[Rfam]
RNA: RNA anti-toxin A
Organism: Streptococcus danieliae
RNA sequence: UAAUUAAUACAUAAAAAGAGCUGGACGGCAAUCCAGCUCAAAGUAGAACCGUUUAAGACGGUGACUCGUUAAACAGAUUUAAUC
Numbered sequence: 001u002a003a004u005u006a007a008u009a010c011a012u013a014a015a016a017a018g019a020g021c022u023g024g025a026c027g028g029c030a031a032u033c034c035a036g037c038u039c040a041a042a043g044u045a046g047a048a049c050c051g052u053u054u055a056a057g058a059c060g061g062u063g064a065c066u067c068g069u070u071a072a073a074c075a076g077a078u079u080u081a082a083u084c
Stems, first nucleotide, its partner, number of pairs: 022035004048062006